Small Cajal body specific RNA 23: a 126-nucleotide RNA from Sorex araneus. The base pairs follow the family's consensus structure, which was predicted with RNAfold. The family has 18 seed sequences and 399 matches in Rfam 15.1. Gene Ontology terms of the family: nucleolus, Cajal body and RNA processing. From the family's description: scaRNAs are a specific class of small nuclear RNAs which localise to the Cajal bodies and guide the modification of RNA polymerase II transcribed spliceosomal RNAs U1, U2, U4, U5 and U12. The organism belongs to Sorex, within Eukaryota.

RNA sequence: AUGCUCACCAGGGCUUGGUCUUCUCCGUGUGGUCCUGACCUGCCCUCCAUGAGCAAGAGAGACUGAACUGGUUUUGGGGGUACCCUGUCUGAGUGGACAUGGGAGACCACGGUUUUCAGUACAACA
Numbered sequence: 001a002u003g004c005u006c007a008c009c010a011g012g013g014c015u016u017g018g019u020c021u022u023c024u025c026c027g028u029g030u031g032g033u034c035c036u037g038a039c040c041u042g043c044c045c046u047c048c049a050u051g052a053g054c055a056a057g058a059g060a061g062a063c064u065g066a067a068c069u070g071g072u073u074u075u076g077g078g079g080g081u082a083c084c085c086u087g088u089c090u091g092a093g094u095g096g097a098c099a100u101g102g103g104a105g106a107c108c109a110c111g112g113u114u115u116u117c118a119g120u121a122c123a124a125c126a
Base pairs, nucleotide, nucleotide: 003054004053005052006051007050012044013043014042017040018039019038020037025032026031065122067120068119069118070117071116074112075111076110079108080107081106084103085102086101087098088097089096090095
Dot-bracket structure: ..(((((....(((..((((....((....))....)))).))).....)))))..........(.(((((..(((..(((..(((((((....))))..)))..))).)))...))))).)....